[Rfam]
RNA: SAM riboswitch aptamer (S box leader)
RNA sequence: CUCUUAUCAAGAGCGGUGGAGGGACUGGCCCAUUGAAACCGCGGCAACCUUCAAUCAUUGAAAAGGUGCCAAUUCCUGCAGGAAACUGUAAAGAUAAGGG
Numbered sequence: 001c002u003c004u005u006a007u008c009a010a011g012a013g014c015g016g017u018g019g020a021g022g023g024a025c026u027g028g029c030c031c032a033u034u035g036a037a038a039c040c041g042c043g044g045c046a047a048c049c050u051u052c053a054a055u056c057a058u059u060g061a062a063a064a065g066g067u068g069c070c071a072a073u074u075c076c077u078g079c080a081g082g083a084a085a086c087u088g089u090a091a092a093g094a095u096a097a098g099g100g
Base pairs, nucleotide, nucleotide: 001100002099003098004097005096006095007094008093013042014041015040016039017038021031022030023029025078027076028075043070044069045068046067048066049065050062051061052060053059074092079088080087081086